[Rfam]
RNA sequence: UUUAGGUUUGUGCCUAAGCGCCCGUGCUAUCAGAACGGGGGAACCAGUAAAGGGGCGUAUUUCCGAGUUCUUAAUACCCAAUUGAGGGUAAUCGGAAGAGGACAUCUCUCAGUCCUAGCCCGUCAGCUAACCUCGUCGGCAUUGAGGGGAGAUUGA
Dot-bracket structure: ..........((((....(.............).((((((....(......)(((.....((((((.........................))))))..((((........))))...))).........)))))).))))...............
Numbered sequence: 001u002u003u004a005g006g007u008u009u010g011u012g013c014c015u016a017a018g019c020g021c022c023c024g025u026g027c028u029a030u031c032a033g034a035a036c037g038g039g040g041g042a043a044c045c046a047g048u049a050a051a052g053g054g055g056c057g058u059a060u061u062u063c064c065g066a067g068u069u070c071u072u073a074a075u076a077c078c079c080a081a082u083u084g085a086g087g088g089u090a091a092u093c094g095g096a097a098g099a100g101g102a103c104a105u106c107u108c109u110c111a112g113u114c115c116u117a118g119c120c121c122g123u124c125a126g127c128u129a130a131c132c133u134c135g136u137c138g139g140c141a142u143u144g145a146g147g148g149g150a151g152a153u154u155g156a
Stems, first nucleotide, its partner, number of pairs: 011141004019033001035136006045052001053121003061097006100115004